[Rfam]
RNA sequence: CACCGAUAAAGGCAAAACCAGUGAAAACUGGUGACGCAAAGCUAUAGGGUCUUCCCCAUGUAAUAAAUGGGUUGACAGCCAGCUACCGAA
Numbered sequence: 001c002a003c004c005g006a007u008a009a010a011g012g013c014a015a016a017a018c019c020a021g022u023g024a025a026a027a028c029u030g031g032u033g034a035c036g037c038a039a040a041g042c043u044a045u046a047g048g049g050u051c052u053u054c055c056c057c058a059u060g061u062a063a064u065a066a067a068u069g070g071g072u073u074g075a076c077a078g079c080c081a082g083c084u085a086c087c088g089a090a
Stems, first nucleotide, its partner, number of pairs: 012037002017032006040084004047080002049076003056070004
RNA: c-di-GMP-I riboswitch aptamer
Organism: Anaerocolumna jejuensis